[Rfam]
RNA sequence: AAAAUGCUAUGAGGAAUCAUGAAAACUUUCGUAUGUCAGACUUCAGAGAUGCCAUGGCAUCAAUGACAUGUUUUCAUUUUCUGAGCUUAUA
Number, nucleotide and partner (000 for none) at each position: 001a000002a090003a000004a088005u000006g086007c085008u000009a000010u000011g000012a000013g000014g000015a000016a000017u000018c000019a000020u000021g000022a000023a000024a000025a000026c000027u000028u000029u000030c000031g000032u000033a000034u000035g000036u000037c000038a000039g000040a000041c000042u000043u000044c000045a000046g000047a000048g061049a060050u059051g058052c000053c000054a000055u000056g000057g000058c051059a050060u049061c048062a000063a000064u000065g000066a000067c000068a000069u000070g000071u000072u000073u000074u000075c000076a000077u000078u000079u000080u000081c000082u000083g000084a000085g007086c006087u000088u004089a000090u002091a000
This 91-nucleotide RNA from Oryza meridionalis belongs to the Rfam family "Small nucleolar RNA R64/Z200 family". NCBI's taxonomy places the organism under Eukaryota, Viridiplantae, Streptophyta, Tracheophyta, Oryza. Its family is annotated with nucleolus and RNA processing in the Gene Ontology. Rfam classes the family as a C/D-box small nucleolar RNA.